[Rfam]
RNA sequence: AUGGAAAUGAUGAUUAUUUCCCCAGAUGAUCGAAGCUGAACAUACUGUGCGAUUUGUUUUUCUCUAAUUCCUUGGAGAUUCUAAGCCAGUACUCUGAUCCAU
Number, nucleotide and partner (000 for none) at each position: 001a102002u101003g100004g099005a098006a000007a000008u000009g000010a000011u000012g000013a000014u000015u000016a000017u000018u000019u000020c000021c000022c000023c000024a000025g000026a000027u000028g000029a000030u000031c000032g000033a000034a000035g000036c000037u000038g000039a000040a000041c000042a000043u000044a000045c000046u000047g000048u000049g000050c000051g000052a000053u000054u000055u000056g000057u000058u000059u000060u000061u000062c000063u000064c000065u000066a000067a000068u000069u000070c000071c000072u000073u000074g000075g000076a000077g000078a000079u000080u000081c000082u000083a000084a000085g000086c000087c000088a000089g000090u000091a000092c000093u000094c000095u000096g000097a000098u005099c004100c003101a002102u001
Record summary
This 102-nucleotide RNA sequence from Hibiscus trionum belongs to the Rfam family "Small nucleolar RNA Z103". On this family, see Chen et al., Nucleic Acids Res 2003: "The high diversity of snoRNAs in plants: identification and comparative study of 120 snoRNA genes from Oryza sativa". Rfam links the family to the GO terms nucleolus and RNA processing. Rfam 15.1 lists 2,844 matches to the family in 233 species. The family's consensus secondary structure was predicted with PFOLD. It is annotated as a C/D-box small nucleolar RNA.